[Rfam]
RNA: TPP riboswitch aptamer (THI element)
RNA sequence: CGGUAAUCCGAGGGGCGCGCCGGGCGGCGCUGAGACGGCGGUGAGCCGAACCCUUGAACCUGAUCCGGGUCAUGCCGGCGUAGGGACGGAGCGAGGCCAUAGG
Numbered sequence: 001c002g003g004u005a006a007u008c009c010g011a012g013g014g015g016c017g018c019g020c021c022g023g024g025c026g027g028c029g030c031u032g033a034g035a036c037g038g039c040g041g042u043g044a045g046c047c048g049a050a051c052c053c054u055u056g057a058a059c060c061u062g063a064u065c066c067g068g069g070u071c072a073u074g075c076c077g078g079c080g081u082a083g084g085g086a087c088g089g090a091g092c093g094a095g096g097c098c099a100u101a102g103g
Stems, first nucleotide, its partner, number of pairs: 007090004011054004016048001017030005037047003059084004065078004